[Rfam]
RNA sequence: GCCGAGCUUAGUAAUGUGGGCUUGUAACCCAGAUGGGGGCAAUAAUGUGGUGGAAUGUUGGGCCCCUCCAGAUGGUAGGGCUUGGUUUGCUUAUUUCUGGCCUGCCCUGUCCAAACACAGAGUUGGGUCACGUGGCCCAAGCGAAAGCAUGGGCUGCUGGGCCCCUAAAGUGGGGCGGACCGCGUGAGGCUGGUUUCACAGAGCAAUGAAUAGCGCUCUCGCUCUGUGCAAUGGAAGGAUUACGGGCCGGUCUUCUCCAGGCCUAACAAAUGCCUGAUGGGCUGCUCCAAUUAAACCACUGCUUUU
Numbered sequence: 001g002c003c004g005a006g007c008u009u010a011g012u013a014a015u016g017u018g019g020g021c022u023u024g025u026a027a028c029c030c031a032g033a034u035g036g037g038g039g040c041a042a043u044a045a046u047g048u049g050g051u052g053g054a055a056u057g058u059u060g061g062g063c064c065c066c067u068c069c070a071g072a073u074g075g076u077a078g079g080g081c082u083u084g085g086u087u088u089g090c091u092u093a094u095u096u097c098u099g100g101c102c103u104g105c106c107c108u109g110u111c112c113a114a115a116c117a118c119a120g121a122g123u124u125g126g127g128u129c130a131c132g133u134g135g136c137c138c139a140a141g142c143g144a145a146a147g148c149a150u151g152g153g154c155u156g157c158u159g160g161g162c163c164c165c166u167a168a169a170g171u172g173g174g175g176c177g178g179a180c181c182g183c184g185u186g187a188g189g190c191u192g193g194u195u196u197c198a199c200a201g202a203g204c205a206a207u208g209a210a211u212a213g214c215g216c217u218c219u220c221g222c223u224c225u226g227u228g229c230a231a232u233g234g235a236a237g238g239a240u241u242a243c244g245g246g247c248c249g250g251u252c253u254u255c256u257c258c259a260g261g262c263c264u265a266a267c268a269a270a271u272g273c274c275u276g277a278u279g280g281g282c283u284g285c286u287c288c289a290a291u292u293a294a295a296c297c298a299c300u301g302c303u304u305u306u
Stems, first nucleotide, its partner, number of pairs: 001040003004023007028037003044305002047302007056293002058290003061286003066281001068280003074274004078264008089253001097250008106238002110235004116228008125164005132157008141148002165170001172219003175214002183208003190201003
The record is a 306-nucleotide RNA from Nicotiana tabacum, which matches "Plant signal recognition particle RNA" in Rfam. NCBI's taxonomy places the organism under Eukaryota, Streptophyta, Nicotianoideae, Nicotianeae, Nicotiana. Gene Ontology terms of the family: signal recognition particle, endoplasmic reticulum targeting and SRP-dependent cotranslational protein targeting to membrane, signal sequence recognition. It is annotated as a non-coding RNA gene. For this family Rfam cites "SRPDB: Signal Recognition Particle Database" (Rosenblad et al., Nucleic Acids Res, 2003). It scores 229 bits against the family's covariance model.